RNA sequence: AGUUACUAGGCAGUGUAGUUAGCUGAUUGCUAGUAGUAGUACCAAUCACUAACCACACAGCCAAGUAAAC
Number, nucleotide and partner (000 for none) at each position: 001a000002g000003u068004u067005a066006c065007u000008a000009g062010g061011c000012a000013g058014u057015g056016u055017a000018g053019u052020u051021a050022g049023c000024u048025g047026a046027u045028u044029g043030c000031u041032a000033g000034u000035a000036g000037u000038a000039g000040u000041a031042c000043c029044a028045a027046u026047c025048a024049c022050u021051a020052a019053c018054c000055a016056c015057a014058c013059a000060g000061c010062c009063a000064a000065g006066u005067a004068a003069a000070c000

Overview:
Rfam assigns this 70-nucleotide sequence from Sarcophilus harrisii to the family "mir-34 microRNA precursor family". Rfam describes the family as follows. Human mir-34a was discovered computationally and later experimentally verified. Its Rfam clan is "mir-34 clan". It scores 68 bits against the family's covariance model. Pairs were carried over by alignment from the consensus structure, which was predicted with RNAalifold. Its family is annotated with RISC complex and miRNA-mediated post-transcriptional gene silencing in the Gene Ontology.